[Rfam]
RNA sequence: CGGCUGCCCCGUCUGGAAGACUUGUGAUUUUGUUGUUGUCUUACUGCGCUCAACAACAAAUCCUAGUCUCCCGAAUGGUGCCAGCCA
Number, nucleotide and partner (000 for none) at each position: 001c000002g086003g085004c084005u083006g082007c080008c000009c078010c077011g076012u075013c000014u073015g072016g071017a000018a069019g068020a067021c066022u065023u000024g064025u000026g062027a061028u060029u059030u058031u000032g057033u056034u055035g054036u053037u052038g000039u000040c000041u000042u000043a000044c000045u000046g000047c000048g000049c000050u000051c000052a037053a036054c035055a034056a033057c032058a030059a029060a028061u027062c026063c000064u024065a022066g021067u020068c019069u018070c000071c016072c015073g014074a000075a012076u011077g010078g009079u000080g007081c000082c006083a005084g004085c003086c002087a000
RNA: mir-7 microRNA precursor family